The record is a 122-nucleotide RNA sequence from Erinaceus europaeus, which matches "Small nucleolar RNA SNORA26" in Rfam. The match comes from Rfam's covariance-model search (92 bits). Its Rfam clan is "SNORA27 clan".
RNA sequence: AUACCCUUUCAAGGUUGACAGAGUACUUUAAGAGGCUAGCUCAAAAGGGUAGCCUACGUCCUUAUAAAACUCAGAGAAGAGAUCGUAAAACUCUUCUUUGGAUCCUGUCUGGAAUCUUAGUA
Numbered sequence: 001a002u003a004c005c006c007u008u009u010c011a012a013g014g015u016u017g018a019c020a021g022a023g024u025a026c027u028u029u030a031a032g033a034g035g036c037u038a039g040c041u042c043a044a045a046a047g048g049g050u051a052g053c054c055u056a057c058g059u060c061c062u063u064a065u066a067a068a069a070c071u072c073a074g075a076g077a078a079g080a081g082a083u084c085g086u087a088a089a090a091c092u093c094u095u096c097u098u099u100g101g102a103u104c105c106u107g108u109c110u111g112g113a114a115u116c117u118u119a120g121u122a
Stems, first nucleotide, its partner, number of pairs: 002051008014040004019035001058116001062112003071101007079093003083090001

Rfam 15.1 lists 1,943 matches to the family in 640 species.
The family's RNA type in Rfam is H/ACA-box small nucleolar RNA.
Rfam's curators write: The snoRNA HBI-6 belong to the H/ACA family of snoRNAs, guiding the pseudouridylation of position U4522 if the 28S rRNA. HBI-6 is the human orthologue of mouse MBI-6 snoRNA.